[Rfam]
RNA: THF (Tetrahydrofolate) riboswitch aptamer
Organism: Anaerococcus vaginalis
RNA sequence: GGUAGAGUAGGGUUAAGGCGUUAAGUGCUAGAAAAUGGGAUGUUGUUUCUAGACGAAAGAUUUUAACCUGCAUCCGCUACA
Numbered sequence: 001g002g003u004a005g006a007g008u009a010g011g012g013u014u015a016a017g018g019c020g021u022u023a024a025g026u027g028c029u030a031g032a033a034a035a036u037g038g039g040a041u042g043u044u045g046u047u048u049c050u051a052g053a054c055g056a057a058a059g060a061u062u063u064u065a066a067c068c069u070g071c072a073u074c075c076g077c078u079a080c081a
Stems, first nucleotide, its partner, number of pairs: 002080004010069009019059001021057001025054002028052007038075005